[Rfam]
RNA sequence: CUCUUAUCAAGAGUGGCGGAGGGACUGGCCCAAUGAUGCCCGGCAACCGGUAGUGGAAACUAUGCGGUGCUAAUUCCAACAGAACCUUAGGUUCUGACAGAUGAGAG
Numbered sequence: 001c002u003c004u005u006a007u008c009a010a011g012a013g014u015g016g017c018g019g020a021g022g023g024a025c026u027g028g029c030c031c032a033a034u035g036a037u038g039c040c041c042g043g044c045a046a047c048c049g050g051u052a053g054u055g056g057a058a059a060c061u062a063u064g065c066g067g068u069g070c071u072a073a074u075u076c077c078a079a080c081a082g083a084a085c086c087u088u089a090g091g092u093u094c095u096g097a098c099a100g101a102u103g104a105g106a107g
Stems, first nucleotide, its partner, number of pairs: 001107008013041001015040003021031003026078003042071004047067002050063004075099001080096006

This 107-nucleotide RNA from Desulfosporosinus fructosivorans belongs to the Rfam family "SAM riboswitch aptamer (S box leader)". Taxonomically the source falls in Desulfosporosinus (Bacteria, Bacillati, Bacillota, Eubacteriales). A search with the family's covariance model found it, with a score of 92 bits. Rfam links the family to the GO term regulation of gene expression.